[Rfam]
Shown here is a 50-nucleotide RNA, a member of the family "Xanthine riboswitch aptamer (NMT1 RNA)". Pairs were carried over by alignment from the consensus structure, which is taken from published work. For this family Rfam cites "A bacterial riboswitch class senses xanthine and uric acid to regulate genes associated with purine oxidation" (Yu and Breaker, RNA, 2020).
Nucleotides: 050
Stems, first nucleotide, its partner, number of pairs: 005046006015035001018037002021033005
Number, partner (000 for none) and nucleotide at each position: 001000u002000g003000c004000a005046g006045g007044a008043g009042u010041a011000g012000a013000a014000g015035c016000g017000g018037u019036c020000a021033g022032c023031g024030g025029c026000g027000a028000u029025g030024c031023u032022g033021c034000g035015g036019g037018a038000c039000a040000u041010u042009g043008c044007u045006c046005c047000c048000c049000u050000g